Shown here is a 133-nucleotide RNA from Apteryx australis, a member of the family "Small nucleolar RNA SNORA20".
RNA sequence: AAUCCCAUUUAUUUGCUUCCAUGCUAUCUCAGUGGUAUGAGUAGUUAUACGCAUGGGAAAGACUGUACAAGUCCACUGCAAAUUAGAGAUGAAAGUACCAGUGUUUCAUCUCUUUUGCUGGGGCUGGACAGCU
Number, nucleotide and partner (000 for none) at each position: 001a000002a000003u058004c057005c056006c055007a054008u053009u000010u000011a000012u000013u000014u000015g045016c044017u043018u000019c041020c000021a000022u037023g036024c000025u035026a000027u000028c000029u000030c000031a000032g000033u000034g000035g025036u023037a022038u000039g000040a000041g019042u000043a017044g016045u015046u000047a000048u000049a000050c000051g000052c000053a008054u007055g006056g005057g004058a003059a000060a000061g000062a000063c000064u000065g000066u000067a000068c127069a000070a125071g124072u123073c122074c121075a000076c000077u000078g118079c117080a116081a000082a000083u000084u000085a000086g112087a111088g110089a109090u108091g107092a106093a105094a104095g000096u000097a000098c000099c000100a000101g000102u000103g000104u094105u093106u092107c091108a090109u089110c088111u087112c086113u000114u000115u000116u080117g079118c078119u000120g000121g074122g073123g072124c071125u070126g000127g068128a000129c000130a000131g000132c000133u000
The organism belongs to Apteryx, within Eukaryota.
Rfam describes the family as follows. ACA20 is a member of the H/ACA class of snoRNA that guide the sites of modification of uridines to pseudouridines.
A search with the family's covariance model found it, with a score of 62 bits.
The base pairs follow the family's consensus structure, which was predicted with ILM.